[Rfam]
RNA sequence: AGGAUCAGAAGAGGAGCGUUAACCAGGCAGUUAUCCUUAGGGCCUUACCCGUAUAAAGGAUAAUCAGGGGGAUUAUCGCCGAGGCAGAUACCAAAAAAGGUAGGUAUACUGUCGGCUGUAUGGGUUGAAUCCCUGCAGCUGUCGCUUAACAUGAGUUUAAGUGGAGAGCUUCUGGCCCC
Numbered sequence: 001a002g003g004a005u006c007a008g009a010a011g012a013g014g015a016g017c018g019u020u021a022a023c024c025a026g027g028c029a030g031u032u033a034u035c036c037u038u039a040g041g042g043c044c045u046u047a048c049c050c051g052u053a054u055a056a057a058g059g060a061u062a063a064u065c066a067g068g069g070g071g072a073u074u075a076u077c078g079c080c081g082a083g084g085c086a087g088a089u090a091c092c093a094a095a096a097a098a099g100g101u102a103g104g105u106a107u108a109c110u111g112u113c114g115g116c117u118g119u120a121u122g123g124g125u126u127g128a129a130u131c132c133c134u135g136c137a138g139c140u141g142u143c144g145c146u147u148a149a150c151a152u153g154a155g156u157u158u159a160a161g162u163g164g165a166g167a168g169c170u171u172c173u174g175g176c177c178c179c
Stems, first nucleotide, its partner, number of pairs: 006174006016079003020075003024071001030064008083113005088107005094101001114140007122133003142164007

The record is a 179-nucleotide RNA from Thalassotalea sp. HSM 43, which matches "Lysine riboswitch aptamer" in Rfam.